[Rfam]
This 54-nucleotide RNA from Oncorhynchus mykiss belongs to the Rfam family "UnaL2 LINE 3' element". Rfam links the family to the GO term transposition, RNA-mediated. By type it is a cis-regulatory element. Lineage of the source: Eukaryota > Vertebrata > Actinopterygii > Euteleosteomorpha > Oncorhynchus. Pairs were carried over by alignment from the consensus structure, which is taken from published work.
Nucleotides: 054
Stems, first nucleotide, its partner, number of pairs: 013043001014041003021035005
Number, partner (000 for none) and nucleotide at each position: 001000u002000g003000g004000a005000g006000g007000c008000a009000u010000g011000a012000c013043u014041g015040u016039a017000a018000g019000u020000g021035g022034c023033u024032u025031u026000g027000g028000a029000u030000a031025a032024a033023a034022g035021c036000a037000u038000a039016u040015g041014c042000u043013a044000a045000a046000u047000g048000g049000c050000a051000u052000a053000c054000a